[Rfam]
RNA: Bacterial RNase P class A
RNA sequence: UGAGUCGGCAGGGCGGUCGCGUCGACAGAUUUCAUGUCUGUCGCCGAGGAAAGUCCGGACUCCGCAGGGCAGGGUGGUUGUUAACGGCAACCAGGGGCGACCCUCGGGACAGUGCCACAGAGAACAGACCGCCCCGGCGACGAGCCGGGGUAAGGGUGAAACGGUGGUGUAAGAGACCACCAGCGCCCCGGGUGACCGGGGCGGCUAGGUAAACCCCACCCGGAGCAAGGCCAAGAGGGUGUCCCCCGGGACACCUGCGCAGGCGAUCGAGGGCGGCCCGCCCGAUGCCUGCGGGUAGGCCGCACGAGCCUGUCGGCGACGGCAGGCCGAGAUGGAUGGCCGCCGAACGGGACCGCCGCGAGGCGCCCGGGAACAGAAUCCGGCUUACAUGCCGACUCAUCCG
Dot-bracket structure: ((((((((((((((((((.((.((((((.........)))))).))....[[[.[[[[[((((...[[[[.((((((((((.....)))))(((((....)))).)((...(((((............((((((((((.....))))))))..)).......((((((.......)))))).(((((((((....)))))))).)..)))..)))))))))))))...((((..........................((((((......((((.]]]]))))...)))))).....))))......((((((((....))))))))..........)))))))..................................]]]]]]]].).))))))))))....